[Rfam]
RNA sequence: AAUAAAAUCUUAGUUAUCACUUAUUUAUACUUGGAAUUGGCCAAGCGUCUCUACCGAACACCGUAAUGUUCGACAAUGAGUGAAAGUCGUCUUAUC
Numbered sequence: 001a002a003u004a005a006a007a008u009c010u011u012a013g014u015u016a017u018c019a020c021u022u023a024u025u026u027a028u029a030c031u032u033g034g035a036a037u038u039g040g041c042c043a044a045g046c047g048u049c050u051c052u053a054c055c056g057a058a059c060a061c062c063g064u065a066a067u068g069u070u071c072g073a074c075a076a077u078g079a080g081u082g083a084a085a086g087u088c089g090u091c092u093u094a095u096c
Stems, first nucleotide, its partner, number of pairs: 018082008030045005055072006
Dot-bracket structure: .................((((((((....(((((......))))).........((((((......))))))..))))))))..............
This 96-nucleotide RNA from Floricoccus tropicus belongs to the Rfam family "Purine riboswitch aptamer". NCBI's taxonomy places the organism under Bacteria, Bacillota, Lactobacillales, Streptococcaceae, Floricoccus. A search with the family's covariance model found it, with a score of 63 bits.